[Rfam]
RNA sequence: GGGCUCAGGCAAUCGCUCUGCUUCUUAAUGGAGCAGAGAGGAAAGUCCAUGCUCACACAGCCUGAAAUGGCUGUAGUGUUCGUGCUUGACGAAACCAUAAGUCAAGGCAGUAUUGUAUACUGACGGCGAUUGGAACACCUACGUAUCCUCUGAGGGUAUAUGGUCGACCAUCUGAAAGUGCCACAGUGACGUAGUCUUCUCGGAAACGAGAAGAGUGGAACGAGGUAAACCCCGCGAGUGAGAAACCCAAAAAUAUGGUAGGGGCAUUUCUGUAACGGAAACGUUAGAAGAAGGCGGCUUUUAGCCGCAGAUAGAUGAUUGCCAUCGUCAUGUGAGGUGAAUAGCCGCAGCACGACGAUACAGAACAUGGCUUAUCGAG
Numbered sequence: 001g002g003g004c005u006c007a008g009g010c011a012a013u014c015g016c017u018c019u020g021c022u023u024c025u026u027a028a029u030g031g032a033g034c035a036g037a038g039a040g041g042a043a044a045g046u047c048c049a050u051g052c053u054c055a056c057a058c059a060g061c062c063u064g065a066a067a068u069g070g071c072u073g074u075a076g077u078g079u080u081c082g083u084g085c086u087u088g089a090c091g092a093a094a095c096c097a098u099a100a101g102u103c104a105a106g107g108c109a110g111u112a113u114u115g116u117a118u119a120c121u122g123a124c125g126g127c128g129a130u131u132g133g134a135a136c137a138c139c140u141a142c143g144u145a146u147c148c149u150c151u152g153a154g155g156g157u158a159u160a161u162g163g164u165c166g167a168c169c170a171u172c173u174g175a176a177a178g179u180g181c182c183a184c185a186g187u188g189a190c191g192u193a194g195u196c197u198u199c200u201c202g203g204a205a206a207c208g209a210g211a212a213g214a215g216u217g218g219a220a221c222g223a224g225g226u227a228a229a230c231c232c233c234g235c236g237a238g239u240g241a242g243a244a245a246c247c248c249a250a251a252a253a254u255a256u257g258g259u260a261g262g263g264g265c266a267u268u269u270c271u272g273u274a275a276c277g278g279a280a281a282c283g284u285u286a287g288a289a290g291a292a293g294g295c296g297g298c299u300u301u302u303a304g305c306c307g308c309a310g311a312u313a314g315a316u317g318a319u320u321g322c323c324a325u326c327g328u329c330a331u332g333u334g335a336g337g338u339g340a341a342u343a344g345c346c347g348c349a350g351c352a353c354g355a356c357g358a359u360a361c362a363g364a365a366c367a368u369g370g371c372u373u374a375u376c377g378a379g
Stems, first nucleotide, its partner, number of pairs: 004379003007375001008323007016038006043373003047370005052242005057074006080237005085106006107124001108122006125232002128172003137164003143159007178230002180226003195214008246263003267293005273287001294308006325358005331352003
The family of this 379-nucleotide sequence from Geomicrobium sp. JCM 19039 is "Bacterial RNase P class B". It is annotated as a ribozyme. Rfam's curators write: Ribonuclease P (RNase P) is a ubiquitous endoribonuclease, found in archaea, bacteria and eukarya as well as chloroplasts and mitochondria. Its best characterised activity is the generation of mature 5'-ends of tRNAs by cleaving the 5'-leader elements of precursor-tRNAs. Cellular RNase Ps are ribonucleoproteins.